A member of the RNA family "Small nucleolar RNA SNORD94" from Steatornis caripensis, 140 nucleotides long. The literature on the family includes a 2003 paper in Nucleic Acids Res by Vitali et al., "Identification of 13 novel human modification guide RNAs". Pairs were carried over by alignment from the consensus structure, which was predicted with RNAalifold. Gene Ontology terms of the family: RNA processing and nucleolus.

RNA sequence: AUGGCGAUGAUGAUUGGCGCAGGGGUACGGACCUCAGCUGGAUCAUGGGAGCUGAAUGCGAACUGUUUAUUUCAGUGCAGCUGGCAUGUGGCCGGCUCGCUGAAAAAAGGUUUGCAUGAGACUGCCAAAAACUGAGCCAU
Numbered sequence: 001a002u003g004g005c006g007a008u009g010a011u012g013a014u015u016g017g018c019g020c021a022g023g024g025g026u027a028c029g030g031a032c033c034u035c036a037g038c039u040g041g042a043u044c045a046u047g048g049g050a051g052c053u054g055a056a057u058g059c060g061a062a063c064u065g066u067u068u069a070u071u072u073c074a075g076u077g078c079a080g081c082u083g084g085c086a087u088g089u090g091g092c093c094g095g096c097u098c099g100c101u102g103a104a105a106a107a108a109g110g111u112u113u114g115c116a117u118g119a120g121a122c123u124g125c126c127a128a129a130a131a132c133u134g135a136g137c138c139a140u
Stems, first nucleotide, its partner, number of pairs: 001140005